Rfam assigns this 173-nucleotide part of an RNA from Monosporascus sp. mg162 to the family "Ascomycota telomerase RNA". Pairs were carried over by alignment from the consensus structure.
[Rfam]
RNA sequence: GCUUUUCGACGACUACCCCUGCGGUAGUCGGCGGAAUUUCCCUCAUCUCUACCAGCAACGGACUGAGAAGAGACGACGAGUGCGGUUUUUAUCGACGUCUUUUGAUCGCACGCAUUCGCCCUCCUUGCCGCCUCGUUGGCCCGACGGAGAGGAAUCAAAAACUAGUCUGCGUU
Numbered sequence: 001g002c003u004u005u006u007c008g009a010c011g012a013c014u015a016c017c018c019c020u021g022c023g024g025u026a027g028u029c030g031g032c033g034g035a036a037u038u039u040c041c042c043u044c045a046u047c048u049c050u051a052c053c054a055g056c057a058a059c060g061g062a063c064u065g066a067g068a069a070g071a072g073a074c075g076a077c078g079a080g081u082g083c084g085g086u087u088u089u090u091a092u093c094g095a096c097g098u099c100u101u102u103u104g105a106u107c108g109c110a111c112g113c114a115u116u117c118g119c120c121c122u123c124c125u126u127g128c129c130g131c132c133u134c135g136u137u138g139g140c141c142c143g144a145c146g147g148a149g150a151g152g153a154a155u156c157a158a159a160a161a162c163u164a165g166u167c168u169g170c171g172u173u
Base pairs, nucleotide, nucleotide: 005036006035007034010030011029012028013027015025016024017023041075042072043071044070046068047067048066049065052061053060094167095166096165097162098161100160101159102158103157104156105155119152120151121149122148123147124146130145133144134143135142

Its Rfam clan is "Telomerase clan".